RNA sequence: CUUCCUGAGGAGCGUUGCAACCCACAUCACGUGGACCAGGCUCAGGACUUCAUUGCAACCACGCUCACCCGCA
Numbered sequence: 001c002u003u004c005c006u007g008a009g010g011a012g013c014g015u016u017g018c019a020a021c022c023c024a025c026a027u028c029a030c031g032u033g034g035a036c037c038a039g040g041c042u043c044a045g046g047a048c049u050u051c052a053u054u055g056c057a058a059c060c061a062c063g064c065u066c067a068c069c070c071g072c073a
Base pairs, nucleotide, nucleotide: 003047004046005045006044007043008042022034023033024032025031

This 73-nucleotide RNA sequence from Polaromonas sp. JS666 belongs to the Rfam family "SAH (S-adenosyl-L-homocysteine) riboswitch aptamer". The organism belongs to Polaromonas, within Bacteria.